The family of this 382-nucleotide sequence from bacterium 1XD42-54 is "Bacterial RNase P class A". The family's RNA type in Rfam is ribozyme. The match comes from Rfam's covariance-model search (295 bits).

[Rfam]
Nucleotides: 382
Base pairs, nucleotide, nucleotide: 001378002377003376004375005374006373007372008371009370010369011367012347013346014345015344016343017342018341020047021046023044024043025042026041027040028039052365053364054363056362057361058360059359060358061257062256063255064254068286069285070284071283074253075252076251077250078249079093080092081091082090083089094108095106096105097104098103109248110247114246115245116242117241118240130187131186132183133182134181135180136179138177139176195213196212198210199209200208214236215234216233217232218231219230220229221228222227261304262303263302264301270295271294272293273292274291279289280288281287311330312329313328314327315326316325317324318323
Number, partner (000 for none) and nucleotide at each position: 001378u002377a003376a004375g005374u006373a007372g008371g009370a010369u011367a012347a013346a014345u015344g016343g017342u018341c019000g020047c021046g022000g023044c024043u025042g026041g027040c028039a029000g030000g031000c032000c033000g034000a035000a036000a037000g038000g039028u040027g041026c042025c043024a044023g045000a046021c047020g048000a049000g050000g051000a052365a053364a054363g055000u056362c057361c058360g059359g060358g061257c062256u063255u064254c065000a066000c067000a068286g069285g070284g071283c072000a073000g074253g075252g076251a077250u078249g079093c080092c081091g082090g083089a084000u085000a086000a087000c088000g089083u090082c091081c092080g093079g094108u095106g096105g097104a098103g099000g100000c101000g102000a103098c104097u105096c106095u107000a108094a109248g110247g111000a112000u113000a114246g115245u116242g117241c118240a119000a120000c121000a122000g123000a124000a125000a126000u127000g128000a129000a130187c131186c132183g133182c134181c135180g136179g137000u138177g139176c140000a141000g142000u143000g144000c145000u146000g147000u148000g149000g150000a151000u152000u153000c154000u155000g156000u157000u158000u159000u160000a161000c162000g163000g164000a165000a166000c167000a168000u169000g170000c171000a172000a173000g174000c175000g176139g177138c178000u179136c180135c181134g182133g183132u184000a185000a186131g187130g188000g189000u190000g191000g192000a193000a194000g195213g196212g197000c198210a199209g200208u201000g202000u203000a204000a205000g206000a207000g208200a209199c210198u211000a212196c213195c214236g215234c216233c217232c218231u219230c220229c221228c222227g223000g224000u225000a226000a227222c228221g229220g230219g231218a232217g233216g234215g235000g236214c237000a238000u239000a240118u241117g242116u243000a244000a245115a246114c247110c248109c249078c250077a251076u252075c253074c254064g255063a256062a257061g258000c259000a260000a261304g262303a263302c264301c265000g266000a267000a268000a269000c270295g271294a272293a273292g274291c275000a276000u277000a278000u279289g280288g281287c282000g283071g284070c285069c286068c287281g288280u289279c290000a291274g292273c293272u294271u295270c296000a297000g298000g299000u300000a301264g302263g303262u304261u305000g306000c307000u308000g309000g310000a311330a312329c313328c314327u315326g316325c317324c318323g319000g320000c321000a322000a323318c324317g325316g326315c327314a328313g329312g330311u331000c332000u333000g334000g335000a336000u337000a338000g339000a340000u341018g342017a343016c344015c345014a346013u347012u348000c349000a350000c351000g352000a353000c354000a355000u356000a357000a358060c359059c360058c361057g362056g363054c364053u365052u366000a367011u368000c369010g370009u371008c372007c373006u374005g375004c376003u377002u378001a379000u380000a381000a382000a